Shown here is a 154-nucleotide sequence from Macaca mulatta, a member of the family "U1 spliceosomal RNA". Rfam 15.1 lists 40,184 matches to the family in 1,499 species. For this family Rfam cites "The uRNA database" (Zwieb, Nucleic Acids Res, 1997). Rfam classes the family as a spliceosomal small nuclear RNA.
RNA sequence: AUACUUACCUGGCAGGGGAGAUACCAUGGCCAUGAAGAUGGUUUUCCCAAGGCAAGCCUUAUCCAUUGCACUCUGGAUGUGCUGACCCCUAUGAUGUCCCCAAAUGUGGGAAAUUCGACUGCAUGAUUUGUGGUAGUGAGGAAUUGCAUUCGCA
Numbered sequence: 001a002u003a004c005u006u007a008c009c010u011g012g013c014a015g016g017g018g019a020g021a022u023a024c025c026a027u028g029g030c031c032a033u034g035a036a037g038a039u040g041g042u043u044u045u046c047c048c049a050a051g052g053c054a055a056g057c058c059u060u061a062u063c064c065a066u067u068g069c070a071c072u073c074u075g076g077a078u079g080u081g082c083u084g085a086c087c088c089c090u091a092u093g094a095u096g097u098c099c100c101c102a103a104a105u106g107u108g109g110g111a112a113a114u115u116c117g118a119c120u121g122c123a124u125g126a127u128u129u130g131u132g133g134u135a136g137u138g139a140g141g142a143a144u145u146g147c148a149u150u151c152g153c154a
Base pairs, nucleotide, nucleotide: 012122013121014120015119016048017047018046019045020044021043023042024041025040026039027038049090051088052087056083058081060079061078062077063076064075092117093116094115095113097111099109100108145154146153147152